Rfam assigns this 77-nucleotide sequence from Oreochromis niloticus to the family "mir-23 microRNA precursor family". The family has 83 seed sequences and 1,403 matches in Rfam 15.1. It scores 56 bits against the family's covariance model. For this family Rfam cites "Identification of tissue-specific microRNAs from mouse" (Lagos-Quintana et al., Curr Biol, 2002). Gene Ontology terms of the family: gene silencing by miRNA and RISC complex.

Nucleotides: 077
Base pairs, nucleotide, nucleotide: 001077003075004074005073009070011066012065013064014063015062016061017060018059019058020057021056023054024053025052026051027050028049029048
Number, partner (000 for none) and nucleotide at each position: 001077g002000g003075c004074c005073a006000g007000g008000g009070g010000a011066a012065u013064u014063c015062c016061u017060g018059g019058c020057a021056g022000a023054g024053u025052g026051a027050u028049u029048u030000u031000u032000u033000u034000u035000a036000a037000a038000c039000u040000a041000g042000a043000g044000g045000a046000c047000u048029g049028a050027a051026u052025c053024a054023c055000a056021u057020u058019g059018c060017c061016a062015g063014g064013g065012a066011u067000u068000u069000c070009c071000a072000a073005u074004g075003g076000c077001u